Shown here is a 74-nucleotide sequence from Nakamurella endophytica, a member of the family "c-di-GMP-I riboswitch aptamer". The source organism's lineage runs through Bacteria, Actinomycetota, Nakamurellales, Nakamurellaceae and Nakamurella. From the family's description: GEMM was predicted in a large-scale screen for bacterial structured RNA regulatory elements. It scores 46 bits against the family's covariance model. The family's consensus secondary structure is taken from published work.

[Rfam]
RNA sequence: ACACCGAAACGGCAAACCCGACGCGAGUCGGGGACGCAAGCCACGGAACCCCACGGGUCAGCCGGGCCACCGAA
Numbered sequence: 001a002c003a004c005c006g007a008a009a010c011g012g013c014a015a016a017c018c019c020g021a022c023g024c025g026a027g028u029c030g031g032g033g034a035c036g037c038a039a040g041c042c043a044c045g046g047a048a049c050c051c052c053a054c055g056g057g058u059c060a061g062c063c064g065g066g067c068c069a070c071c072g073a074a
Stems, first nucleotide, its partner, number of pairs: 012037002017032006040067003044064003048058004